[Rfam]
RNA: raiA RNA
Organism: Sporomusa acidovorans
RNA sequence: UUUGCUUAGGUCUGUGGUUGAAAGUCGAUGCCAGUCGCAGGCGAAACGACCCACGUAAGAAACCCAAAGUGGUUUUGAGCAUGGUGCGGCUUAGAGGUAAGUCCUGCCGGUCCGGAAAAUUUUACAUAUGAUUUGAUCGAGAGAAGCAGUAGUGAGGAGAUUGACUUCUUAGUAGCGAGCCUUCCAGCAGGCGAGUGUGGGGGCAAAGACCAGGUCGGCUAAGCAGU
Numbered sequence: 001u002u003u004g005c006u007u008a009g010g011u012c013u014g015u016g017g018u019u020g021a022a023a024g025u026c027g028a029u030g031c032c033a034g035u036c037g038c039a040g041g042c043g044a045a046a047c048g049a050c051c052c053a054c055g056u057a058a059g060a061a062a063c064c065c066a067a068a069g070u071g072g073u074u075u076u077g078a079g080c081a082u083g084g085u086g087c088g089g090c091u092u093a094g095a096g097g098u099a100a101g102u103c104c105u106g107c108c109g110g111u112c113c114g115g116a117a118a119a120u121u122u123u124a125c126a127u128a129u130g131a132u133u134u135g136a137u138c139g140a141g142a143g144a145a146g147c148a149g150u151a152g153u154g155a156g157g158a159g160a161u162u163g164a165c166u167u168c169u170u171a172g173u174a175g176c177g178a179g180c181c182u183u184c185c186a187g188c189a190g191g192c193g194a195g196u197g198u199g200g201g202g203g204c205a206a207a208g209a210c211c212a213g214g215u216c217g218g219c220u221a222a223g224c225a226g227u
Base pairs, nucleotide, nucleotide: 002226003225004224005223006222007221008220009219012218013217014216015212016211017210018209019208028198029197030196031041033091034090035089036088037087038086039085050084051083058076059075060074061073063072064071082205103191104190105189106188107187108139109138110137111136112135143184144183145182146181152176153175158169159168160167